RNA: Glycine riboswitch aptamer
RNA sequence: CAUUUUUACGCGGGAGAGCUCGGUUCGCAUUUGAACCGGCGCCGAAGGAGCAACCGCCCCGGAAACUCUCAGGUCAAAGGGACCGCGUGAAAGCA
Number, nucleotide and partner (000 for none) at each position: 001c000002a000003u000004u000005u000006u090007u089008a088009c087010g086011c085012g084013g083014g000015a000016g000017a000018g000019c000020u039021c038022g037023g036024u035025u034026c033027g032028c000029a000030u000031u000032u027033g026034a025035a024036c023037c022038g021039g020040c000041g074042c073043c072044g070045a069046a000047g000048g068049a067050g066051c000052a000053a000054c062055c061056g000057c000058c000059c000060c000061g055062g054063a000064a000065a000066c050067u049068c048069u045070c044071a000072g043073g042074u041075c000076a000077a000078a000079g000080g000081g000082a000083c013084c012085g011086c010087g009088u008089g007090a006091a000092a000093g000094c000095a000